This 170-nucleotide sequence from Hydrogenispora ethanolica belongs to the Rfam family "Lysine riboswitch aptamer". The match comes from Rfam's covariance-model search (99 bits).
[Rfam]
RNA sequence: UGGUAGAGUAGAGGCGCGAACCGCAAGAGUAGCUUCAUGGAGACCGGCAGGUCGAGGAGACGGAGUGAAAGGGUGUUUCGCCGAAGUUGGAGAAGACGCCGUUUCUCCGGCUGGUAUCGCAGGUGAAAACUUCGGUACUGUCACCCGUCGGGUGAAGAGCUAUCUUGCCG
Dot-bracket structure: .....(.((((....(((((.(((.......(((((.(.....................).)))))......))).)))))...(((((((((((......)))))))))))(((((((.((((....))))))))))).((((((...))))))....)))).).....